[Rfam]
RNA sequence: GACUGGCGUCUUACCUGGGCAAUAUUAGAGGCUUAGUUCUGUCUAAUACUGUCAGGUAAUGAUGCUAGUC
Numbered sequence: 001g002a003c004u005g006g007c008g009u010c011u012u013a014c015c016u017g018g019g020c021a022a023u024a025u026u027a028g029a030g031g032c033u034u035a036g037u038u039c040u041g042u043c044u045a046a047u048a049c050u051g052u053c054a055g056g057u058a059a060u061g062a063u064g065c066u067a068g069u070c
Stems, first nucleotide, its partner, number of pairs: 001070010011059007020051002023048004028044001030042001
The record is a 70-nucleotide sequence from Haemonchus contortus, which matches "mir-236 microRNA precursor family" in Rfam. The family has 8 seed sequences and 52 matches in Rfam 15.1. The family is grouped with related families in Rfam's "mir-8 microRNA precursor clan". Rfam links the family to the GO terms RISC complex and miRNA-mediated post-transcriptional gene silencing. Pairs were carried over by alignment from the consensus structure, which was predicted with RNAalifold.